[Rfam]
RNA: UnaL2 LINE 3' element
Organism: Coregonus sp. 'balchen'
RNA sequence: CAUUUCACUAACUGUAAGUCGCUCUGGAUAAGAGUGUCUGCUAAAUAACUAUAA
Numbered sequence: 001c002a003u004u005u006c007a008c009u010a011a012c013u014g015u016a017a018g019u020c021g022c023u024c025u026g027g028a029u030a031a032g033a034g035u036g037u038c039u040g041c042u043a044a045a046u047a048a049c050u051a052u053a054a
Stems, first nucleotide, its partner, number of pairs: 013043001014041003020036006